A member of the RNA family "trpB ncRNA motif" from Limosilactobacillus fermentum, 99 nucleotides long. trpB ncRNA motif was reported as a strong cis regulatory motif candidate, with potential to be a cis regulatory riboswitch type, it have been identified in Firmicutes and Fusobacteria. The motif have been recognised upstream of an uncharacterized ABC transporter with strong homology to amino acid transporters. It is also occasionally located upstream of trpB gene, that codes for a tryptophan synthase. NCBI's taxonomy places the organism under Bacteria, Bacillati, Bacilli, Lactobacillaceae, Limosilactobacillus.
RNA sequence: UUUACGGAUGCAACCUGGGAUCUUUCAGAUUGCAUCUGUACCGGCUUCAAAGCAUACUUUGGCGCUCGUACGGAUCCACGUACGGGCGUUUCUUUUUUC
Numbered sequence: 001u002u003u004a005c006g007g008a009u010g011c012a013a014c015c016u017g018g019g020a021u022c023u024u025u026c027a028g029a030u031u032g033c034a035u036c037u038g039u040a041c042c043g044g045c046u047u048c049a050a051a052g053c054a055u056a057c058u059u060u061g062g063c064g065c066u067c068g069u070a071c072g073g074a075u076c077c078a079c080g081u082a083c084g085g086g087c088g089u090u091u092c093u094u095u096u097u098u099c
Base pairs, nucleotide, nucleotide: 003040004039005038006037007036008035009034010033011032015028016027017026018025063088064087065086066085067084068083069082070081071080072079